[Rfam]
Record summary:
Shown here is an 89-nucleotide sequence from Streptomyces sp. NWU49, a member of the family "Streptomyces RNA 3202". The source organism's lineage runs through Bacteria, Actinomycetota, Actinomycetes, Kitasatosporales and Streptomyces. It is annotated as a small RNA. The base pairs follow the family's consensus structure. On this family, see Vockenhuber et al., RNA Biol 2011: "Deep sequencing-based identification of small non-coding RNAs in Streptomyces coelicolor".
RNA sequence: CCACGUCCCGACGCACAACCCCCCCGGCGCCGGGACUUCCCAGAGCCGGGCUCGGCGCCCUCCCCCCGGGCGCCGGGCCCGGCUCCCUU
Numbered sequence: 001c002c003a004c005g006u007c008c009c010g011a012c013g014c015a016c017a018a019c020c021c022c023c024c025c026g027g028c029g030c031c032g033g034g035a036c037u038u039c040c041c042a043g044a045g046c047c048g049g050g051c052u053c054g055g056c057g058c059c060c061u062c063c064c065c066c067c068g069g070g071c072g073c074c075g076g077g078c079c080c081g082g083c084u085c086c087c088u089u
Stems, first nucleotide, its partner, number of pairs: 005036006012029003043085018